A member of the RNA family "Plastid-psbN 5UTR RNA" from Musa balbisiana, 59 nucleotides long.
Plastid psbN is a non-coding RNA (ncRNA) recognised in plastids. It was reported as a conserved 11 stem-loop in the prime untranslated region (5UTR) of psbN genes. It has been reported that the motif is retained in a subset of mature transcripts in barley, which can suggests a possible role in transcript alternative 5 prime processing.
Rfam classes the family as a cis-regulatory element.
The organism belongs to Musa, within Eukaryota.
Rfam 15.1 lists 2,345 matches to the family in 397 species.

[Rfam]
RNA sequence: UGCGACUCCAUUAAUGUGUAGUCCCCCAGCCCGGAGCUACUUUACCAUAUUCCGAUUCC
Numbered sequence: 001u002g003c004g005a006c007u008c009c010a011u012u013a014a015u016g017u018g019u020a021g022u023c024c025c026c027c028a029g030c031c032c033g034g035a036g037c038u039a040c041u042u043u044a045c046c047a048u049a050u051u052c053c054g055a056u057u058c059c
Stems, first nucleotide, its partner, number of pairs: 016042001018040005024034002